[Rfam]
RNA sequence: GACGAUGUUGGGUUCUUUCCUCCCAGAUUCCCCAACAUUGAAUGUACUGCACCUCCUCCCGCGGUACAUUUACAAUCAGGACCGCUGCACCUCCUCCCGCAGCGGUCCUUUUUU
Dot-bracket structure: ......((((((.((..........))..))).)))...((((((((((............))))))))))......(((((((((((..........))))))))))).....
Numbered sequence: 001g002a003c004g005a006u007g008u009u010g011g012g013u014u015c016u017u018u019c020c021u022c023c024c025a026g027a028u029u030c031c032c033c034a035a036c037a038u039u040g041a042a043u044g045u046a047c048u049g050c051a052c053c054u055c056c057u058c059c060c061g062c063g064g065u066a067c068a069u070u071u072a073c074a075a076u077c078a079g080g081a082c083c084g085c086u087g088c089a090c091c092u093c094c095u096c097c098c099g100c101a102g103c104g105g106u107c108c109u110u111u112u113u114u
Stems, first nucleotide, its partner, number of pairs: 007036003010032003014027002040071010078109011
Notes:
A member of the RNA family "Alphaproteobacterial ar14" from Phyllobacterium endophyticum, 114 nucleotides long. Lineage of the source: Bacteria > Pseudomonadati > Pseudomonadota > Hyphomicrobiales > Phyllobacterium. The pairing is the family consensus, mapped onto this sequence. The literature on the family includes a 2012 paper in RNA Biol by del Val et al., "A survey of sRNA families in alpha-proteobacteria".